[Rfam]
RNA: Small Cajal body-specific RNA 7
Organism: Eudromia elegans
RNA sequence: UGGAAAUGAUGAAAUGGAGAUAACUGGAUGUCGCUCUGAAUGAUGUGCGUAUGGUAAACAGCCUUGAAUUAAAUUUUUUUGGGGGUGGGGGAAGAGUGUGUGUGUGUGUCUGCGUGGGGUAUAUAAAAGGCUAUAAACUGGGGGCACUGAUAAUGAAGUGCUGAUUCCGGAGUGCAUCUGAGGCAUGUUGUUAAAUUCUGGGGUGUUGCUUUUCAACAUUGCCGAUGAUUAGAGCCCAAAACAAGCUCACCAGACUAGCCUAGGCAUCUUAAAAAAUCUCUAACAGGUUCAUUAGUGAAAAUGAUCCUGUGAUCUGAUCCAA
Numbered sequence: 001u002g003g004a005a006a007u008g009a010u011g012a013a014a015u016g017g018a019g020a021u022a023a024c025u026g027g028a029u030g031u032c033g034c035u036c037u038g039a040a041u042g043a044u045g046u047g048c049g050u051a052u053g054g055u056a057a058a059c060a061g062c063c064u065u066g067a068a069u070u071a072a073a074u075u076u077u078u079u080u081g082g083g084g085g086u087g088g089g090g091g092a093a094g095a096g097u098g099u100g101u102g103u104g105u106g107u108g109u110c111u112g113c114g115u116g117g118g119g120u121a122u123a124u125a126a127a128a129g130g131c132u133a134u135a136a137a138c139u140g141g142g143g144g145c146a147c148u149g150a151u152a153a154u155g156a157a158g159u160g161c162u163g164a165u166u167c168c169g170g171a172g173u174g175c176a177u178c179u180g181a182g183g184c185a186u187g188u189u190g191u192u193a194a195a196u197u198c199u200g201g202g203g204u205g206u207u208g209c210u211u212u213u214c215a216a217c218a219u220u221g222c223c224g225a226u227g228a229u230u231a232g233a234g235c236c237c238a239a240a241a242c243a244a245g246c247u248c249a250c251c252a253g254a255c256u257a258g259c260c261u262a263g264g265c266a267u268c269u270u271a272a273a274a275a276a277u278c279u280c281u282a283a284c285a286g287g288u289u290c291a292u293u294a295g296u297g298a299a300a301a302u303g304a305u306c307c308u309g310u311g312a313u314c315u316g317a318u319c320c321a322a
Stems, first nucleotide, its partner, number of pairs: 001321004186218005194207003198202001